[Rfam]
RNA: Glutamine riboswitch aptamer (glnA leader)
RNA sequence: AUCGUUCAUCUAUUAUAGACGGAAGUAGGUUACUCAACCGAAGGAACGCACC
Number, nucleotide and partner (000 for none) at each position: 001a000002u000003c048004g047005u046006u045007c044008a000009u019010c018011u017012a016013u000014u000015a000016u012017a011018g010019a009020c000021g000022g049023a000024a000025g000026u000027a000028g039029g038030u037031u000032a000033c000034u000035c000036a000037a030038c029039c028040g000041a000042a000043g000044g007045a006046a005047c004048g003049c022050a000051c000052c000